[Rfam]
RNA sequence: UCUGCGAAAUGGCAAAUGACGCGAAAGCGGCAGACGCAAAGCUACAGGGGCUAAUCGGCUUGGUCCGCAUGCCUGCCAGCUACCGAA
Numbered sequence: 001u002c003u004g005c006g007a008a009a010u011g012g013c014a015a016a017u018g019a020c021g022c023g024a025a026a027g028c029g030g031c032a033g034a035c036g037c038a039a040a041g042c043u044a045c046a047g048g049g050g051c052u053a054a055u056c057g058g059c060u061u062g063g064u065c066c067g068c069a070u071g072c073c074u075g076c077c078a079g080c081u082a083c084c085g086a087a
Stems, first nucleotide, its partner, number of pairs: 012037002017032002020029003040081004047077002049073003056067003
c-di-GMP-I riboswitch aptamer: an 87-nucleotide RNA from Paenibacillus ferrarius.
Pairs were carried over by alignment from the consensus structure, which is taken from published work.
The family is grouped with related families in Rfam's "c-di-GMP_I riboswitch clan".
From the family's description: GEMM was predicted in a large-scale screen for bacterial structured RNA regulatory elements. Genes associated with GEMM are involved in a diverse array of functions, including chemotaxis regulation, signal transduction, secretion and chitin.